[Rfam]
FMN riboswitch aptamer (RFN element): a 120-nucleotide RNA from Lapidilactobacillus dextrinicus.

RNA sequence: GUUUGUCUUCAGGGCAGGGUGUAAUUCCCGACCGGCGGUAAAGUCCGCGACCUACAGCGAUGUAGUUGAAUUGGUGUAAUUCCAAUACCGAUAGUAUAGUCUAGAUGAAAGAAGACAGUC
Numbered sequence: 001g002u003u004u005g006u007c008u009u010c011a012g013g014g015c016a017g018g019g020u021g022u023a024a025u026u027c028c029c030g031a032c033c034g035g036c037g038g039u040a041a042a043g044u045c046c047g048c049g050a051c052c053u054a055c056a057g058c059g060a061u062g063u064a065g066u067u068g069a070a071u072u073g074g075u076g077u078a079a080u081u082c083c084a085a086u087a088c089c090g091a092u093a094g095u096a097u098a099g100u101c102u103a104g105a106u107g108a109a110a111g112a113a114g115a116c117a118g119u120c
Stems, first nucleotide, its partner, number of pairs: 003118008017029003031100002033090002035048004043088002052065002070086005092103003
Pairs were carried over by alignment from the consensus structure, which is taken from published work. Gene Ontology term of the family: FMN binding. The source organism's lineage runs through Bacteria, Bacillati, Bacillota, Lactobacillales and Lapidilactobacillus dextrinicus.